Annotation
A member of the RNA family "Small nucleolar RNA Z188" from Leersia perrieri, 100 nucleotides long. It is annotated as a C/D-box small nucleolar RNA. The family's consensus secondary structure was predicted with PFOLD. Lineage of the source: Eukaryota > Viridiplantae > Streptophytina > Liliopsida > Leersia.
RNA sequence: GCGUGCCGGUGAUUAUUAAAGGUUAUCAAUGGUGAAUUCUACGAAUGUGCUCCCGUGCCAACGGGUGCGCAGCUGUAGUGAUAGUUCAUCUGAGGCACGC
Numbered sequence: 001g002c003g004u005g006c007c008g009g010u011g012a013u014u015a016u017u018a019a020a021g022g023u024u025a026u027c028a029a030u031g032g033u034g035a036a037u038u039c040u041a042c043g044a045a046u047g048u049g050c051u052c053c054c055g056u057g058c059c060a061a062c063g064g065g066u067g068c069g070c071a072g073c074u075g076u077a078g079u080g081a082u083a084g085u086u087c088a089u090c091u092g093a094g095g096c097a098c099g100c
Stems, first nucleotide, its partner, number of pairs: 002099006